Record summary:
FMN riboswitch aptamer (RFN element): a 115-nucleotide sequence from Finegoldia magna.
RNA sequence: AAAUUACUUCAGGGCGAGGUUGAUUUCCUCACCGGCGGUUACAGUCCGCGAGCGUUAUGCAUGAAUUGGUGUAAUUCCAAUACCGACAGUAAAGUCUGGACGAAAGAAGUAAGUG
Numbered sequence: 001a002a003a004u005u006a007c008u009u010c011a012g013g014g015c016g017a018g019g020u021u022g023a024u025u026u027c028c029u030c031a032c033c034g035g036c037g038g039u040u041a042c043a044g045u046c047c048g049c050g051a052g053c054g055u056u057a058u059g060c061a062u063g064a065a066u067u068g069g070u071g072u073a074a075u076u077c078c079a080a081u082a083c084c085g086a087c088a089g090u091a092a093a094g095u096c097u098g099g100a101c102g103a104a105a106g107a108a109g110u111a112a113g114u115g
Stems, first nucleotide, its partner, number of pairs: 004112007017029003031095002033085002035049004044083002065081005087098003
Pairs were carried over by alignment from the consensus structure, which is taken from published work.